[Rfam]
RNA sequence: AAACCGCCUCCUAAGUUUUGCAACUAUAGCAGUUUUGGCCUCUCAAGAUCAAUUUUUUGUAUAAAAAAAAAUAAAAUAAAUAACCCGUGGCACCUCACUUAGGGUGCCACGUCAACGUAGACUGAGUCAAAAUUGGCCUUGGGGACCAAAACUGCCACAGAUGCAAAACUUAAGGGACGGUUU
Numbered sequence: 001a002a003a004c005c006g007c008c009u010c011c012u013a014a015g016u017u018u019u020g021c022a023a024c025u026a027u028a029g030c031a032g033u034u035u036u037g038g039c040c041u042c043u044c045a046a047g048a049u050c051a052a053u054u055u056u057u058u059g060u061a062u063a064a065a066a067a068a069a070a071a072u073a074a075a076a077u078a079a080a081u082a083a084c085c086c087g088u089g090g091c092a093c094c095u096c097a098c099u100u101a102g103g104g105u106g107c108c109a110c111g112u113c114a115a116c117g118u119a120g121a122c123u124g125a126g127u128c129a130a131a132a133u134u135g136g137c138c139u140u141g142g143g144g145a146c147c148a149a150a151a152c153u154g155c156c157a158c159a160g161a162u163g164c165a166a167a168a169c170u171u172a173a174g175g176g177a178c179g180g181u182u183u
Stems, first nucleotide, its partner, number of pairs: 001183002004180003008176001012172011024160002027157001029155010040144003044141003086111001088109007
Source information
The family of this 183-nucleotide RNA from Medicago truncatula is "MIR2619 microRNA precursor family". NCBI's taxonomy places the organism under Eukaryota, Euphyllophyta, rosids, Hologalegina, Medicago. The family's consensus secondary structure was predicted with RNAalifold. Rfam links the family to the GO terms RISC complex and miRNA-mediated post-transcriptional gene silencing. A search with the family's covariance model found it, with a score of 113 bits.